[Rfam]
RNA sequence: CAAGGGUUCCAGGCCAUACCAGAAGUGCUCACAGUGCAGCUAUGUCAGAUUCCAACAAAUCUGUGAAUUCUGCU
Numbered sequence: 001c002a003a004g005g006g007u008u009c010c011a012g013g014c015c016a017u018a019c020c021a022g023a024a025g026u027g028c029u030c031a032c033a034g035u036g037c038a039g040c041u042a043u044g045u046c047a048g049a050u051u052c053c054a055a056c057a058a059a060u061c062u063g064u065g066a067a068u069u070c071u072g073c074u
Stems, first nucleotide, its partner, number of pairs: 013040002018074001020072005025037003046063006